The record is a 112-nucleotide RNA sequence, which matches "Actinomyces-1 RNA" in Rfam.
It is annotated as a small RNA.
RNA sequence: GCCGCCGCCGGACGGUGAGGGCCACGAGGUGCUGGGGAGCGCCGAUGAGGGGCCGGAGUCGAGUCCAGGCCCGUAAGGCAAGGGAAUUCGGGUCGGGCGCCCGGCGAAGGAG
Numbered sequence: 001g002c003c004g005c006c007g008c009c010g011g012a013c014g015g016u017g018a019g020g021g022c023c024a025c026g027a028g029g030u031g032c033u034g035g036g037g038a039g040c041g042c043c044g045a046u047g048a049g050g051g052g053c054c055g056g057a058g059u060c061g062a063g064u065c066c067a068g069g070c071c072c073g074u075a076a077g078g079c080a081a082g083g084g085a086a087u088u089c090g091g092g093u094c095g096g097g098c099g100c101c102c103g104g105c106g107a108a109g110g111a112g
Base pairs, nucleotide, nucleotide: 006106007105008104009103010102011101013061014060015059016058020054021053022052023051028043029042031040032039033038063098064097065096066095068094069093072090073089075087